[Rfam]
RNA: SAM riboswitch aptamer (S box leader)
Organism: Geobacter sp. OR-1
Nucleotides: 105
Base pairs, nucleotide, nucleotide: 001105002104003103004102005101006100007099008098013042014041015040016039017038021031022030023029025076026075027074028073043068044067045066046065048064049063050061051060052059053058072097077094078093079092080091081090082089
Number, partner (000 for none) and nucleotide at each position: 001105u002104u003103c004102u005101u006100a007099u008098c009000a010000a011000g012000a013042g014041c015040g016039a017038c018000c019000g020000a021031g022030g023029g024000a025076c026075a027074g028073g029023c030022c031021c032000u033000g034000u035000g036000a037000c038017g039016u040015c041014g042013c043068g044067g045066c046065a047000a048064c049063c050061u051060c052059c053058c054000g055000c056000a057000a058053g059052g060051g061050a062000a063049g064048g065046u066045g067044c068043c069000a070000a071000u072097u073028c074027c075026u076025g077094c078093g079092g080091a081090a082089c083000c084000g085000a086000c087000a088000g089082g090081u091080u092079c093078c094077g095000g096000g097072a098008g099007a100006u101005a102004a103003g104002g105001g